[Rfam]
RNA sequence: GUAUAAUGAUGAAACCCAUGCGUGUCAGCUGACACUGUAAGCCCCUGCUGUGGUGUUGCUUUGGUCGGCGUUCUGCUGGCUCGAGCGUUCAUGACAACAGAGGUCCAGAGGCAUGAUCAUACAUUCAUUACUUCUGAAUAC
Numbered sequence: 001g002u003a004u005a006a007u008g009a010u011g012a013a014a015c016c017c018a019u020g021c022g023u024g025u026c027a028g029c030u031g032a033c034a035c036u037g038u039a040a041g042c043c044c045c046u047g048c049u050g051u052g053g054u055g056u057u058g059c060u061u062u063g064g065u066c067g068g069c070g071u072u073c074u075g076c077u078g079g080c081u082c083g084a085g086c087g088u089u090c091a092u093g094a095c096a097a098c099a100g101a102g103g104u105c106c107a108g109a110g111g112c113a114u115g116a117u118c119a120u121a122c123a124u125u126c127a128u129u130a131c132u133u134c135u136g137a138a139u140a141c
Stems, first nucleotide, its partner, number of pairs: 001141004043102001045100003049096003
Description
The family of this 141-nucleotide RNA from Neolamprologus brichardi is "Small nucleolar RNA SNORD10". The match comes from Rfam's covariance-model search (78 bits). Rfam links the family to the GO terms RNA processing and nucleolus.